[Rfam]
RNA sequence: CUAUAGCAAGGGAAUGAAUGUCUCCCUUAGUUUAAGAACUAAAACCGCUACAUGCUGAUGACUUCUGCAUUUUU
Numbered sequence: 001c002u003a004u005a006g007c008a009a010g011g012g013a014a015u016g017a018a019u020g021u022c023u024c025c026c027u028u029a030g031u032u033u034a035a036g037a038a039c040u041a042a043a044a045c046c047g048c049u050a051c052a053u054g055c056u057g058a059u060g061a062c063u064u065c066u067g068c069a070u071u072u073u074u
Stems, first nucleotide, its partner, number of pairs: 010026004016065003020062003047055002
The family of this 74-nucleotide RNA sequence from Coprobacillus cateniformis is "Fluoride riboswitch aptamer (crcB RNA motif)".